[Rfam]
MIR2275 microRNA precursor family: a 91-nucleotide sequence from Rhododendron simsii. Rfam 15.1 lists 785 matches to the family in 111 species. The base pairs follow the family's consensus structure, which was predicted with RNAalifold.
RNA sequence: AUGCCGUAUGUGAGAAUUGGAGGGAACCAAACAGAUGGGACAUUUUCUUGUGCAUUCUGUUUAGUUUCCUCCAAUAUCUCAUCUCCGACUU
Numbered sequence: 001a002u003g004c005c006g007u008a009u010g011u012g013a014g015a016a017u018u019g020g021a022g023g024g025a026a027c028c029a030a031a032c033a034g035a036u037g038g039g040a041c042a043u044u045u046u047c048u049u050g051u052g053c054a055u056u057c058u059g060u061u062u063a064g065u066u067u068c069c070u071c072c073a074a075u076a077u078c079u080c081a082u083c084u085c086c087g088a089c090u091u
Base pairs, nucleotide, nucleotide: 005087006086008084011081012080013079014078016075017074018073019072020071021070023068024067025066026065027064029062030061032059033058